The record is a 120-nucleotide RNA sequence from Diceros bicornis, which matches "mir-584 microRNA precursor family" in Rfam.
Pairs were carried over by alignment from the consensus structure, which was predicted with RNAalifold.
NCBI's taxonomy places the organism under Eukaryota, Dipnotetrapodomorpha, Boreoeutheria, Laurasiatheria, Diceros bicornis.
The match comes from Rfam's covariance-model search (81 bits).
The literature on the family includes a 2007 paper in Cancer Res by Lui et al., "Patterns of known and novel small RNAs in human cervical cancer".
RNA sequence: CAGGGUGACCAACCAUCCUGGUUUGCCUGGGACUGAGGGGUUUCCCAGAAUGUGGGACUUCCGUUGCUAAAACUGGGACAGUCCCAGGCAAACCAGGAUGGUUGGUCACCCCUAACUUCU
Numbered sequence: 001c002a003g004g005g006u007g008a009c010c011a012a013c014c015a016u017c018c019u020g021g022u023u024u025g026c027c028u029g030g031g032a033c034u035g036a037g038g039g040g041u042u043u044c045c046c047a048g049a050a051u052g053u054g055g056g057a058c059u060u061c062c063g064u065u066g067c068u069a070a071a072a073c074u075g076g077g078a079c080a081g082u083c084c085c086a087g088g089c090a091a092a093c094c095a096g097g098a099u100g101g102u103u104g105g106u107c108a109c110c111c112c113u114a115a116c117u118u119c120u
Base pairs, nucleotide, nucleotide: 003111004110005109006108007107008106009105010104011103012102013101014100015099019095020094021093022092023091024090025089026088027087028086029085030084031083032082033081034080035079038053040051041050042049